RNA sequence: GCCCGCUUGGCCUAAUGGAAAGGCGCUAGCCUCCUAAGCUAGAGAUUGCGGGUUCGAGUCCCGCAGUGGGUA
Dot-bracket structure: (((((((..((((.......)))).(((((.......))))).....(((((.......)))))))))))).
Overview:
The record is a 72-nucleotide RNA sequence from Mitosporidium daphniae, which matches "tRNA" in Rfam. A search with the family's covariance model found it, with a score of 69 bits. The base pairs follow the family's consensus structure, which is taken from published work. By type it is a transfer RNA. The source organism's lineage runs through Eukaryota, Opisthokonta, Fungi, Microsporidia and Mitosporidium.